Glycine riboswitch aptamer: a 106-nucleotide RNA sequence from Thermoflavimicrobium daqui.
About the family: This family represents the bacterial glycine riboswitch.
RNA sequence: AUGACUGUUGUGGGAGAGAUCGGACAAUCCCGUUCGACACCGAAGGAGCAAUGUCCCUAAAAACCUUGGGGCGCAAUCUCUCAGGUAAAGAGACCACAAUACGACG
Numbered sequence: 001a002u003g004a005c006u007g008u009u010g011u012g013g014g015a016g017a018g019a020u021c022g023g024a025c026a027a028u029c030c031c032g033u034u035c036g037a038c039a040c041c042g043a044a045g046g047a048g049c050a051a052u053g054u055c056c057c058u059a060a061a062a063a064c065c066u067u068g069g070g071g072c073g074c075a076a077u078c079u080c081u082c083a084g085g086u087a088a089a090g091a092g093a094c095c096a097c098a099a100u101a102c103g104a105c106g
Stems, first nucleotide, its partner, number of pairs: 006101008020037004039086003042082002046080003052073006